[Rfam]
U1 spliceosomal RNA: a 160-nucleotide RNA sequence from Miscanthus lutarioriparius. About the family: U1 is a small nuclear RNA (snRNA) component of the spliceosome (involved in pre-mRNA splicing). Its 5' end forms complementary base pairs with the 5' splice junction, thus defining the 5' donor site of an intron. The family is grouped with related families in Rfam's "U1 clan". Pairs were carried over by alignment from the consensus structure, which is taken from published work. The source organism's lineage runs through Eukaryota, Viridiplantae, Embryophyta, commelinids and Miscanthus.
RNA sequence: AUACUUACCUGGACGGGGUCGACGGGCGAUCACGAAGGCCCGUGGCCUAGGUCAGUGGCCCGCAUUGCACUUGGCGGGUGCGCUGGCUUACCAUCUCCCCAAGUGGGAGAGUGGACAUCAUAAUUUGUGGUAGAGGGGUGCAGCGUCAUGCAUGCCCCCG
Numbered sequence: 001a002u003a004c005u006u007a008c009c010u011g012g013a014c015g016g017g018g019u020c021g022a023c024g025g026g027c028g029a030u031c032a033c034g035a036a037g038g039c040c041c042g043u044g045g046c047c048u049a050g051g052u053c054a055g056u057g058g059c060c061c062g063c064a065u066u067g068c069a070c071u072u073g074g075c076g077g078g079u080g081c082g083c084u085g086g087c088u089u090a091c092c093a094u095c096u097c098c099c100c101a102a103g104u105g106g107g108a109g110a111g112u113g114g115a116c117a118u119c120a121u122a123a124u125u126u127g128u129g130g131u132a133g134a135g136g137g138g139u140g141c142a143g144c145g146u147c148a149u150g151c152a153u154g155c156c157c158c159c160g
Base pairs, nucleotide, nucleotide: 012119013118015116016048017047018046019045020044021043023042024041025040026039027038049089050088051087053086055083056082057081060078061077062075063074091114092113093112094110095109096108098106099105135158136157137156138155143151144150145149